[Rfam]
RNA: Small nucleolar RNA SNORD18
RNA sequence: UUGAAAGGAUGAGAUUAGGUCCGUGUUCCUGAAUAAUUUCUGAUGUAACUUGACCUUCUGAUCAA
Numbered sequence: 001u002u003g004a005a006a007g008g009a010u011g012a013g014a015u016u017a018g019g020u021c022c023g024u025g026u027u028c029c030u031g032a033a034u035a036a037u038u039u040c041u042g043a044u045g046u047a048a049c050u051u052g053a054c055c056u057u058c059u060g061a062u063c064a065a
Stems, first nucleotide, its partner, number of pairs: 001065004